[Rfam]
This 89-nucleotide RNA sequence from Clostridioides difficile belongs to the Rfam family "Glycine riboswitch aptamer".
RNA sequence: UUACGGAACUCUGGAGAGACCCAUUAUGGGCGCCGAAGGGGCAAGGCUUUUAUGCUCAAUCUCUCAGGCAAAAGGACAGGGAUUAUCUA
Numbered sequence: 001u002u003a004c005g006g007a008a009c010u011c012u013g014g015a016g017a018g019a020c021c022c023a024u025u026a027u028g029g030g031c032g033c034c035g036a037a038g039g040g041g042c043a044a045g046g047c048u049u050u051u052a053u054g055c056u057c058a059a060u061c062u063c064u065c066a067g068g069c070a071a072a073a074g075g076a077c078a079g080g081g082a083u084u085a086u087c088u089a
Stems, first nucleotide, its partner, number of pairs: 006084002009081005020030004032069003035065002039063003045056002
NCBI's taxonomy places the organism under Bacteria, Bacillati, Bacillota, Peptostreptococcaceae, Clostridioides.